[Rfam]
RNA sequence: UGCUGCCAGCAGCAGCGCAGAAGUAAGGGUGGUAUGGUAUUGCCACCCUUACUUCUGUGCUGCUGCUGGUGGUG
Numbered sequence: 001u002g003c004u005g006c007c008a009g010c011a012g013c014a015g016c017g018c019a020g021a022a023g024u025a026a027g028g029g030u031g032g033u034a035u036g037g038u039a040u041u042g043c044c045a046c047c048c049u050u051a052c053u054u055c056u057g058u059g060c061u062g063c064u065g066c067u068g069g070u071g072g073u074g
Base pairs, nucleotide, nucleotide: 001074002073003072005070006069007068011064012063013062014061015060016059017058018057020054022053023052024051025050026049027048028047029046
RNA: mir-16 microRNA precursor family
Organism: Platysternon megacephalum